[Rfam]
RNA sequence: CUUUUAUUCAGAGUGGUGGAGAUACAAAGGAUCUGUGAAGCCACGGCAACCUCUCAAAUAUUGAGGAAGGUGCCAGCCUGAGCGAGUGAUCGAACAAUAAGAG
Numbered sequence: 001c002u003u004u005u006a007u008u009c010a011g012a013g014u015g016g017u018g019g020a021g022a023u024a025c026a027a028a029g030g031a032u033c034u035g036u037g038a039a040g041c042c043a044c045g046g047c048a049a050c051c052u053c054u055c056a057a058a059u060a061u062u063g064a065g066g067a068a069g070g071u072g073c074c075a076g077c078c079u080g081a082g083c084g085a086g087u088g089a090u091c092g093a094a095c096a097a098u099a100a101g102a103g
Stems, first nucleotide, its partner, number of pairs: 001103008013044005021033003030079001045074004050070002052066004083092003